[Rfam]
Shown here is a 134-nucleotide sequence from Mus musculus, a member of the family "Small nucleolar RNA SNORA17".
Lineage of the source: Eukaryota > Deuterostomia > Chordata > Teleostomi > Mus.
Its family is annotated with RNA processing and nucleolus in the Gene Ontology.
Rfam describes the family as follows. snoRNA ACA 17 belongs to the H/ACA family of snoRNAs and is predicted to guide pseudouridylation of the 28S rRNA at positions U4659 and U4598. It shares the same host gene together with ACA43. NB This family has a high threshold value to exclude a large number of closely related sequences that do not appear to have conserved H and ACA boxes, and may be pseudogenes.
On this family, see Ofengand and Bakin, J Mol Biol 1997: "Mapping to nucleotide resolution of pseudouridine residues in large subunit ribosomal RNAs from representative eukaryotes, prokaryotes, archaebacteria, mitochondria and chloroplasts".
RNA sequence: CCUGGUCCUAGAAGUGUUGCAGGUGUGUGGCUGCUGUGUUACAUGUGUGCCAAUAGGUUGCAGAGAGAAGAGAGGCUAUGUCUAAGCUUAGUUUUAUGAACUAUGAACAUCUGAAUGAUUGGCAGUCUGACAUU
Numbered sequence: 001c002c003u004g005g006u007c008c009u010a011g012a013a014g015u016g017u018u019g020c021a022g023g024u025g026u027g028u029g030g031c032u033g034c035u036g037u038g039u040u041a042c043a044u045g046u047g048u049g050c051c052a053a054u055a056g057g058u059u060g061c062a063g064a065g066a067g068a069a070g071a072g073a074g075g076c077u078a079u080g081u082c083u084a085a086g087c088u089u090a091g092u093u094u095u096a097u098g099a100a101c102u103a104u105g106a107a108c109a110u111c112u113g114a115a116u117g118a119u120u121g122g123c124a125g126u127c128u129g130a131c132a133u134u
Stems, first nucleotide, its partner, number of pairs: 002063003007057004014050002019048003026043006070131001073128005079122001086116001088114004092109001094107002
By type it is an H/ACA-box small nucleolar RNA. It scores 92 bits against the family's covariance model.